[Rfam]
RNA sequence: AGCCUUCUGUAUACGAGCCGAAGUUUCGUCAGAUACUAGACCAUGGGAACUGAUGAGAUUUCCAAGAUAAGUGAAGCA
Number, nucleotide and partner (000 for none) at each position: 001a000002g077003c076004c000005u074006u073007c000008u071009g000010u069011a068012u067013a000014c000015g000016a000017g062018c000019c000020g061021a060022a059023g000024u058025u057026u056027c055028g054029u053030c052031a000032g000033a000034u000035a000036c000037u000038a000039g000040a000041c000042c000043a000044u000045g000046g000047g000048a000049a000050c000051u000052g030053a029054u028055g027056a026057g025058a024059u022060u021061u020062c017063c000064a000065a000066g000067a012068u011069a010070a000071g008072u000073g006074a005075a000076g003077c002078a000
RNA: mir-3492 microRNA precursor family